[Rfam]
RNA sequence: AGCUUUGCACAUUGACAGUAUAGCCAAGUGAGGUUUAUCUCAGGAGUGGUUAUUGUUAAUUGAAAACUUUUUCCUAAUACCCUGUUGUCAUGACUUUCAGUAUAGUCAGCAUUGGCAAUUUUUGACAGUCUUUUUGGAGA
Dot-bracket structure: ...................((.(((......((.....))...).)).)).................................(((((..(((((........)))))..)).)))............((((....))))
RNA: U4 spliceosomal RNA